[Rfam]
RNA sequence: GCUUUUUCCAUGAUGGUUACAGUGCAAACCUCUGGUCACUGUAAUUUGAUGAACUGAAAGC
Numbered sequence: 001g002c003u004u005u006u007u008c009c010a011u012g013a014u015g016g017u018u019a020c021a022g023u024g025c026a027a028a029c030c031u032c033u034g035g036u037c038a039c040u041g042u043a044a045u046u047u048g049a050u051g052a053a054c055u056g057a058a059a060g061c
Stems, first nucleotide, its partner, number of pairs: 001061005015046010029035002

Selenocysteine insertion sequence 1: a 61-nucleotide RNA from Salvelinus namaycush. The incorporation of selenocysteine into a protein sequence is directed by an in-frame UGA codon (usually a stop codon) within the coding region of the mRNA. Selenoprotein mRNAs contain a conserved secondary structure in the 3' UTR that is required for the distinction of UGA stop from UGA selenocysteine. A search with the family's covariance model found it, with a score of 37 bits.